This 344-nucleotide RNA sequence from Aminipila butyrica belongs to the Rfam family "Bacterial RNase P class A". The organism belongs to Aminipila, within Bacteria. The family's consensus secondary structure is taken from published work.
RNA sequence: UGGGUAAGCCAGGCAGUCGCGUGCAGCUGCACGAGGAAAGUCCGGGCUCCGUAGGGCAAGGGUGCCAGAUAACGUCUGGCGUAGGUAACUAUAGGGAAAGUGCAACAGAAACAUUCCGCCGAAACAGUUAGGCUGUGGUAAGGUUGAAAUGGUGAGGUAAGAGCUCACCGGCGUCAUGGAGACAUGGCGGCCGUGUAAACCCCACUCGGAGCAAGACCAAAUAGGGCGUAAAAGGCGGCGGCCCGUCGCUGCCCGGUAGGUAGGUCGCUUGAGCGUAUCAGCAAUGGUGCGCCUAGAUAGAUGAUUGUCAAAUACAGAACCCGGCUUAUAGGUUUACCUAAAAC
Numbered sequence: 001u002g003g004g005u006a007a008g009c010c011a012g013g014c015a016g017u018c019g020c021g022u023g024c025a026g027c028u029g030c031a032c033g034a035g036g037a038a039a040g041u042c043c044g045g046g047c048u049c050c051g052u053a054g055g056g057c058a059a060g061g062g063u064g065c066c067a068g069a070u071a072a073c074g075u076c077u078g079g080c081g082u083a084g085g086u087a088a089c090u091a092u093a094g095g096g097a098a099a100g101u102g103c104a105a106c107a108g109a110a111a112c113a114u115u116c117c118g119c120c121g122a123a124a125c126a127g128u129u130a131g132g133c134u135g136u137g138g139u140a141a142g143g144u145u146g147a148a149a150u151g152g153u154g155a156g157g158u159a160a161g162a163g164c165u166c167a168c169c170g171g172c173g174u175c176a177u178g179g180a181g182a183c184a185u186g187g188c189g190g191c192c193g194u195g196u197a198a199a200c201c202c203c204a205c206u207c208g209g210a211g212c213a214a215g216a217c218c219a220a221a222u223a224g225g226g227c228g229u230a231a232a233a234g235g236c237g238g239c240g241g242c243c244c245g246u247c248g249c250u251g252c253c254c255g256g257u258a259g260g261u262a263g264g265u266c267g268c269u270u271g272a273g274c275g276u277a278u279c280a281g282c283a284a285u286g287g288u289g290c291g292c293c294u295a296g297a298u299a300g301a302u303g304a305u306u307g308u309c310a311a312a313u314a315c316a317g318a319a320c321c322c323g324g325c326u327u328a329u330a331g332g333u334u335u336a337c338c339u340a341a342a343a344c
Stems, first nucleotide, its partner, number of pairs: 001340010011329001012309007020033005038327003042324005047211004055244002060207005065079005080094001081092004095202002100200002102196003116143002118139004123134001125132001151169006171191001172189007215266004225257001227255002235249005273292008
It scores 289 bits against the family's covariance model.